Record summary:
The family of this 52-nucleotide RNA sequence from Polerovirus CNPV is "Exoribonuclease-resistant RNA (xrRNA) plant-infecting virus (class 3)". About the family: Exoribonuclease-resistant RNA (xrRNA) plant-infecting virus (class 3) is a ncRNA that was reported in Plant viruses. The sequence is in the family's curated seed alignment. The base pairs follow the family's consensus structure, which is taken from published work.
RNA sequence: AAAACAGCCGAACAUACAUCAGUUGCAAGUGUCGGAGUUUUUAGUCUGAUUA
Numbered sequence: 001a002a003a004a005c006a007g008c009c010g011a012a013c014a015u016a017c018a019u020c021a022g023u024u025g026c027a028a029g030u031g032u033c034g035g036a037g038u039u040u041u042u043a044g045u046c047u048g049a050u051u052a
Base pairs, nucleotide, nucleotide: 001040002039003038008035009034012030013029018050019049020048021047022046
Dot-bracket structure: [[[....[[..[[....(((((......]]...]]..]]].....)))))..